[Rfam]
Nucleotides: 105
Base pairs, nucleotide, nucleotide: 009023010022011021012020059094060093061092063085064084066082067081068080069079070078071077
Number, partner (000 for none) and nucleotide at each position: 001000g002000g003000u004000u005000u006000c007000c008000a009023u010022u011021g012020g013000u014000g015000c016000a017000a018000a019000u020012c021011c022010a023009a024000u025000c026000a027000c028000u029000u030000c031000a032000a033000u034000u035000u036000g037000g038000a039000a040000u041000u042000g043000a044000a045000g046000a047000u048000g049000a050000g051000a052000a053000a054000a055000a056000a057000u058000u059094c060093c061092u062000c063085a064084u065000u066082a067081g068080u069079a070078a071077c072000a073000a074000g075000a076000g077071g078070u079069u080068a081067u082066u083000c084064a085063u086000u087000a088000a089000g090000c091000a092061g093060g094059g095000g096000a097000a098000a099000u100000c101000c102000u103000a104000u105000u

Shown here is a 105-nucleotide RNA from Lumnitzera littorea, a member of the family "Plastid-rps12 3UTR RNA". It is annotated as a cis-regulatory element. Taxonomically the source falls in Lumnitzera (Eukaryota, Spermatophyta, eudicotyledons, Pentapetalae). Rfam describes the family as follows. Plastid rpl20 is a non-coding RNA (ncRNA) recognised in plastids. Rfam's curators put it in the seed alignment. The family has 1,299 seed sequences and 1,710 matches in Rfam 15.1.